[Rfam]
Nucleotides: 120
Base pairs, nucleotide, nucleotide: 008025009024010023011022012021051073054071055070056069057068
Number, partner (000 for none) and nucleotide at each position: 001000c002000g003000u004000a005000g006000c007000g008025g009024c010023u011022g012021a013000a014000u015000c016000a017000g018000a019000g020000a021012u022011u023010g024009g025008c026000g027000c028000u029000a030000c031000a032000a033000c034000u035000u036000u037000u038000a039000a040000a041000c042000u043000u044000a045000c046000u047000c048000u049000u050000a051073u052000c053000a054071g055070g056069a057068g058000a059000g060000a061000a062000u063000u064000a065000u066000g067000u068057c069056u070055c071054u072000g073051a074000a075000u076000g077000c078000a079000g080000a081000a082000a083000c084000u085000a086000a087000a088000g089000c090000a091000g092000c093000a094000a095000u096000c097000g098000u099000u100000g101000c102000a103000g104000a105000a106000u107000a108000c109000g110000c111000a112000c113000a114000a115000g116000c117000u118000g119000a120000a

Rfam assigns this 120-nucleotide RNA sequence from Vibrio ezurae to the family "Ribosomal S15 leader". Clan: Ribosomal Protein S15 Leader clan. The literature on the family includes a 1996 paper in Biochimie by Benard et al., "Pseudoknot and translational control in the expression of the S15 ribosomal protein". Rfam describes the family as follows. The E. coli Ribosomal S15 gene 5' UTR can form two alternative structures. One that is a series of three hairpins, The other includes a pseudoknot. This structure causes translational regulation of the S15 protein. The alignment of this family contains only the final two hairpins which are conserved in other species, and also includes the complete region that forms the alternate structures. By type it is a cis-regulatory leader.